RNA: T-box leader
Organism: Clostridium cavendishii
RNA sequence: UUAUAAGCGUUGAAGAAGACUAGUAAAAACAGCUUUUCAGAGAGAAAAUCCAUGGCUGUAAGAUUUUCAAUAUGUUUUGAACCUACUUCUGAGCUAUAGGUAAAAACUAUCGGUUAAAUAUCGUUAAAAUUAUGAGAGUACAAAUUUAGGUGGUACCGCGACUAUGAGCUCGCCCUAAAA
Dot-bracket structure: ......((......((((.......((((((..((........((((((.............))))))))..)))))).......))))...))..(((.(...).))).(((.......))).......................((((.......((((........))))))))...